[Rfam]
RNA sequence: AAGUUGAAUAUAAGAAUUGGUGGAGACUGAACCAUUGCUCCACGUGGACAAACAGGUUCAAUUUCCGCCAAUAUCUUACCUUCAAUUA
Numbered sequence: 001a002a003g004u005u006g007a008a009u010a011u012a013a014g015a016a017u018u019g020g021u022g023g024a025g026a027c028u029g030a031a032c033c034a035u036u037g038c039u040c041c042a043c044g045u046g047g048a049c050a051a052a053c054a055g056g057u058u059c060a061a062u063u064u065c066c067g068c069c070a071a072u073a074u075c076u077u078a079c080c081u082u083c084a085a086u087u088a
Stems, first nucleotide, its partner, number of pairs: 004085005011078004016072006023065004028060003032056002